RNA sequence: CUGAAGGCCGCGUCCGGGUCAAUUCCCCGCUGCGGGAACACCCGAUCUCCCUGCUCGUCCCCUCCGGAAUGGAGGCCGAGCCGGGGGAACGCGUCACCAUCAG
Dot-bracket structure: ((((....(((((.((((....(((((......)))))..)))).((((.(((..(.......................).))))))))))))......))))
RNA: L4-Archaeoglobi ribosomal protein leades